[Rfam]
The family of this 69-nucleotide sequence from Sphenodon punctatus is "Small nucleolar RNA SNORD73".
By type it is a C/D-box small nucleolar RNA.
RNA sequence: AAUGAAUGACGACACUAUGUUUCGGUCCCAGAUGACACCAAAUGAUUAUACUGUUCUUUCUCUGACAUU
Numbered sequence: 001a002a003u004g005a006a007u008g009a010c011g012a013c014a015c016u017a018u019g020u021u022u023c024g025g026u027c028c029c030a031g032a033u034g035a036c037a038c039c040a041a042a043u044g045a046u047u048a049u050a051c052u053g054u055u056c057u058u059u060c061u062c063u064g065a066c067a068u069u
Stems, first nucleotide, its partner, number of pairs: 001069004